This 237-nucleotide sequence from Paenibacillus apis belongs to the Rfam family "BsrG". The organism belongs to Paenibacillus, within Bacteria. bsrE, bsrG and bsrH pair through intermolecular interactions with antisense sRNAs. They form type I toxin/antitoxin system that includes an mRNA encoding for a short, toxic peptide (bsrE, bsrG and bsrH) and an antitoxin that is comprised of an antisense RNA. bsrG encodes a 39-amino-acid toxin, and the 180 nucleotide antisense sRNA called SR4 acts as the antitoxin (they overlap by 123 nucleotides). SR4 interaction with the 3'UTR of bsrG RNA promotes bsrG degradation and inhibits its translation. Pairs were carried over by alignment from the consensus structure, which was predicted with WAR. The family's RNA type in Rfam is small RNA.
[Rfam]
RNA sequence: UACAAUUGAUUGGCUAUAUAGGGCGGUCGGCUAAUCUCCCGGGAGGGAGGUGAUGCCAUGGAAGUCUAUCAAGCUUUGACGCUAAUGAUUUCAUUUGCGACAUUGGUUGUGUUAGUACUUUCAUUCCAUAAACGGAAAUAGACCGCCCUGAACGAGGAAACGGUCUAUUUCUGGAUCUUUCCGCAGCCAACCGCUCUUAUAGCGGCAUUGUGCAGGGGAUCGGUUACAGCCGAUCCC
Numbered sequence: 001u002a003c004a005a006u007u008g009a010u011u012g013g014c015u016a017u018a019u020a021g022g023g024c025g026g027u028c029g030g031c032u033a034a035u036c037u038c039c040c041g042g043g044a045g046g047g048a049g050g051u052g053a054u055g056c057c058a059u060g061g062a063a064g065u066c067u068a069u070c071a072a073g074c075u076u077u078g079a080c081g082c083u084a085a086u087g088a089u090u091u092c093a094u095u096u097g098c099g100a101c102a103u104u105g106g107u108u109g110u111g112u113u114a115g116u117a118c119u120u121u122c123a124u125u126c127c128a129u130a131a132a133c134g135g136a137a138a139u140a141g142a143c144c145g146c147c148c149u150g151a152a153c154g155a156g157g158a159a160a161c162g163g164u165c166u167a168u169u170u171c172u173g174g175a176u177c178u179u180u181c182c183g184c185a186g187c188c189a190a191c192c193g194c195u196c197u198u199a200u201a202g203c204g205g206c207a208u209u210g211u212g213c214a215g216g217g218g219a220u221c222g223g224u225u226a227c228a229g230c231c232g233a234u235c236c237c
Stems, first nucleotide, its partner, number of pairs: 001212005010190006017152001019150005025143001027141001032053001034051001036049005060122006074087001099112001191205004216237009